[Rfam]
The record is a 196-nucleotide part of an RNA, which matches "Bacterial large subunit ribosomal RNA" in Rfam. The base pairs follow the family's consensus structure, which is taken from published work. The family has 102 seed sequences and 51,934 matches in Rfam 15.1. The family is grouped with related families in Rfam's "LSU clan".
RNA sequence: GAGUUAAUCUGUGGUGCAAGUAGAAAUACUUAGCGAAAGCGACUACGUUAAAUGGGUAAGUACCAUGGAUUAGACCCGAAACCAGGUGAUCUUAUCAUGACCAGGUCAUUAAGGACCGAACCAGUGUUUGUGGCAAUAAACUUGGAUGAGUUGUGAUAAGCAGAGAAAGUCAAAUCUGACCUGGAGAUAGCUGGUA
Numbered sequence: 001g002a003g004u005u006a007a008u009c010u011g012u013g014g015u016g017c018a019a020g021u022a023g024a025a026a027u028a029c030u031u032a033g034c035g036a037a038a039g040c041g042a043c044u045a046c047g048u049u050a051a052a053u054g055g056g057u058a059a060g061u062a063c064c065a066u067g068g069a070u071u072a073g074a075c076c077c078g079a080a081a082c083c084a085g086g087u088g089a090u091c092u093u094a095u096c097a098u099g100a101c102c103a104g105g106u107c108a109u110u111a112a113g114g115a116c117c118g119a120a121c122c123a124g125u126g127u128u129u130g131u132g133g134c135a136a137u138a139a140a141c142u143u144g145g146a147u148g149a150g151u152u153g154u155g156a157u158a159a160g161c162a163g164a165g166a167a168a169g170u171c172a173a174a175u176c177u178g179a180c181c182u183g184g185a186g187a188u189a190g191c192u193g194g195u196a
Stems, first nucleotide, its partner, number of pairs: 005072013020029003033040002043055003075194002078191001082184006091160011102148001104117004121145003126141004163171002